The family of this 133-nucleotide RNA sequence from Podargus strigoides is "Small nucleolar RNA SNORA1". NCBI's taxonomy places the organism under Eukaryota, Opisthokonta, Saurischia, Theropoda, Podargus. About the family: ACA1 is a member of the H/ACA class of snoRNA that guide the sites of modification of uridines to pseudouridines. Rfam links the family to the GO terms RNA processing and nucleolus.
RNA sequence: UGCCUCGUUAUUCAGCAAAUAGACACAACUCACUGUGUGUCUGCACUGAAACAACGUGGCUAGAAGAGUAACAGGUUAUGCUUUCCUCACUGUAAAGUCAAUUGCAGUGGUGACAAUGAGACCUGUAACAGUU
Numbered sequence: 001u002g003c004c005u006c007g008u009u010a011u012u013c014a015g016c017a018a019a020u021a022g023a024c025a026c027a028a029c030u031c032a033c034u035g036u037g038u039g040u041c042u043g044c045a046c047u048g049a050a051a052c053a054a055c056g057u058g059g060c061u062a063g064a065a066g067a068g069u070a071a072c073a074g075g076u077u078a079u080g081c082u083u084u085c086c087u088c089a090c091u092g093u094a095a096a097g098u099c100a101a102u103u104g105c106a107g108u109g110g111u112g113a114c115a116a117u118g119a120g121a122c123c124u125g126u127a128a129c130a131g132u133u
Base pairs, nucleotide, nucleotide: 002060003059004058006056007055008054020043021042022041023040024039025038026037071126072125073124074123075122085112087110088109089108090107